[Rfam]
RNA sequence: UCUACAAUUCGGUCGUUCAUUAGGUCAUCUAGCAACGUUUCUUUAGCUAGCUGCCUAGUGAAGGGCAACAUUGUAUU
Numbered sequence: 001u002c003u004a005c006a007a008u009u010c011g012g013u014c015g016u017u018c019a020u021u022a023g024g025u026c027a028u029c030u031a032g033c034a035a036c037g038u039u040u041c042u043u044u045a046g047c048u049a050g051c052u053g054c055c056u057a058g059u060g061a062a063g064g065g066c067a068a069c070a071u072u073g074u075a076u077u
Base pairs, nucleotide, nucleotide: 004074005073006072007071008070012066013065014064017061018060019059020058023055024054029050030049031048032047033046
RNA: mir-980 microRNA precursor family
Organism: Anopheles sinensis